[Rfam]
RNA sequence: UAUAUGCGGGGUUUGAAAAGGGGAAUCCCCUUUCCGGUUUAGAGGGGGUGCUCAGAAACACGAAGUGUUUCGUCGAAGGGGGC
Numbered sequence: 001u002a003u004a005u006g007c008g009g010g011g012u013u014u015g016a017a018a019a020g021g022g023g024a025a026u027c028c029c030c031u032u033u034c035c036g037g038u039u040u041a042g043a044g045g046g047g048g049u050g051c052u053c054a055g056a057a058a059c060a061c062g063a064a065g066u067g068u069u070u071c072g073u074c075g076a077a078g079g080g081g082g083c
Base pairs, nucleotide, nucleotide: 015034016033017032018031020029021028022027055071056070057069058068059067
A member of the RNA family "Clostridiales-2 RNA" from Ruminiclostridium cellobioparum, 83 nucleotides long. Pairs were carried over by alignment from the consensus structure, which is taken from published work. NCBI's taxonomy places the organism under Bacteria, Oscillospiraceae, Ruminiclostridium, Ruminiclostridium cellobioparum, Ruminiclostridium cellobioparum subsp. termitidis. Rfam classes the family as a small RNA. The match comes from Rfam's covariance-model search (61 bits).